U5 spliceosomal RNA: a 117-nucleotide RNA from Salvia splendens.
RNA sequence: AGCUGCGUGUUGAGCACAUAUCUAACUAUUCUUUCACCUUUUACUAAAGAAUACCAUGUGCUCAUUGCUUAUAAGCAACAUAUGCCAUUUUUUGGAGGGAACAACUUUUUAGGUCCA
Numbered sequence: 001a002g003c004u005g006c007g008u009g010u011u012g013a014g015c016a017c018a019u020a021u022c023u024a025a026c027u028a029u030u031c032u033u034u035c036a037c038c039u040u041u042u043a044c045u046a047a048a049g050a051a052u053a054c055c056a057u058g059u060g061c062u063c064a065u066u067g068c069u070u071a072u073a074a075g076c077a078a079c080a081u082a083u084g085c086c087a088u089u090u091u092u093u094g095g096a097g098g099g100a101a102c103a104a105c106u107u108u109u110u111a112g113g114u115c116c117a
Stems, first nucleotide, its partner, number of pairs: 004077003008067002011064008027053008098116003102112001